[Rfam]
Rfam assigns this 86-nucleotide sequence from Tissierella creatinophila to the family "pan motif". Rfam classes the family as a cis-regulatory element. The family's consensus secondary structure is taken from published work.
RNA sequence: AAGCUAGUAUCUUUAAAAGAACUAGACUAUUUAAAUAGAUAAUCAAUAAAAAAAUCGACUGGUAUCUUAAUGAACUAGAGCGGAGG
Numbered sequence: 001a002a003g004c005u006a007g008u009a010u011c012u013u014u015a016a017a018a019g020a021a022c023u024a025g026a027c028u029a030u031u032u033a034a035a036u037a038g039a040u041a042a043u044c045a046a047u048a049a050a051a052a053a054a055u056c057g058a059c060u061g062g063u064a065u066c067u068u069a070a071u072g073a074a075c076u077a078g079a080g081c082g083g084a085g086g
Stems, first nucleotide, its partner, number of pairs: 002028002004025005010020002056082002059078005065073002